[Rfam]
The record is a 121-nucleotide RNA from Hibiscus trionum, which matches "mir-172 microRNA precursor family" in Rfam.
The source organism's lineage runs through Eukaryota, Streptophytina, Mesangiospermae, rosids and Hibiscus.

RNA sequence: UUGUUUGCGGGUGUAGCAUCAUCAAGAUUCACAUGCAAAUGCACGCCGGUGAUGAUAAUAUCCUUCUAUUGCCAAACUUCUUUGAAAGUGAGAAUCUUGAUGAUGCUGCAUCCGCACUAAA
Numbered sequence: 001u002u003g004u005u006u007g008c009g010g011g012u013g014u015a016g017c018a019u020c021a022u023c024a025a026g027a028u029u030c031a032c033a034u035g036c037a038a039a040u041g042c043a044c045g046c047c048g049g050u051g052a053u054g055a056u057a058a059u060a061u062c063c064u065u066c067u068a069u070u071g072c073c074a075a076a077c078u079u080c081u082u083u084g085a086a087a088g089u090g091a092g093a094a095u096c097u098u099g100a101u102g103a104u105g106c107u108g109c110a111u112c113c114g115c116a117c118u119a120a121a
Stems, first nucleotide, its partner, number of pairs: 010112021032090002
mir-172 has been experimentally verified in Arabidopsis thaliana. This family is thought to target mRNAs coding for APETALA2-like transcription factors. The mature sequence is excised from the 3' arm of the hairpin. The match comes from Rfam's covariance-model search (88 bits).